Rfam assigns this 157-nucleotide RNA sequence to the family "IS605-orfB-II RNA". It is one of the family's seed sequences.
RNA sequence: CAUGAUUAGAUUAGUCUAUCUAGGAUUGUUUAGAGGGUAGUCGCAGUCGCCCCAACUCUGACUUAGAAUAAAAUAGUUUUUUGUUUUGUAAGUAGGGUGAGAAACAACAAAUAUAUUGUUGGAAACUUUGAUUUUUCUUAAUAAAUUAGAGAACUGU
Numbered sequence: 001c002a003u004g005a006u007u008a009g010a011u012u013a014g015u016c017u018a019u020c021u022a023g024g025a026u027u028g029u030u031u032a033g034a035g036g037g038u039a040g041u042c043g044c045a046g047u048c049g050c051c052c053c054a055a056c057u058c059u060g061a062c063u064u065a066g067a068a069u070a071a072a073a074u075a076g077u078u079u080u081u082u083g084u085u086u087u088g089u090a091a092g093u094a095g096g097g098u099g100a101g102a103a104a105c106a107a108c109a110a111a112u113a114u115a116u117u118g119u120u121g122g123a124a125a126c127u128u129u130g131a132u133u134u135u136u137c138u139u140a141a142u143a144a145a146u147u148a149g150a151g152a153a154c155u156g157u
Base pairs, nucleotide, nucleotide: 006023007022008021009020010019011018035052036051037050038049043157044156045155046154056101057100058099061093062092063091064090065089067087068086070084073081105121106120107119108118109117126151127150128149129148130147131146132145133144134143
The base pairs follow the family's consensus structure, which is taken from published work.